[Rfam]
RNA sequence: AGCUCUGUGAUUGCAGCCAAUUGAGUUGGCAAUAUACGCUAUUCUGAGAAAAAGAAUUAGAGAGCUGACAAUGGAUGAUAUGAGAGCU
Numbered sequence: 001a002g003c004u005c006u007g008u009g010a011u012u013g014c015a016g017c018c019a020a021u022u023g024a025g026u027u028g029g030c031a032a033u034a035u036a037c038g039c040u041a042u043u044c045u046g047a048g049a050a051a052a053a054g055a056a057u058u059a060g061a062g063a064g065c066u067g068a069c070a071a072u073g074g075a076u077g078a079u080a081u082g083a084g085a086g087c088u
Stems, first nucleotide, its partner, number of pairs: 001088005
RNA: Small nucleolar RNA U54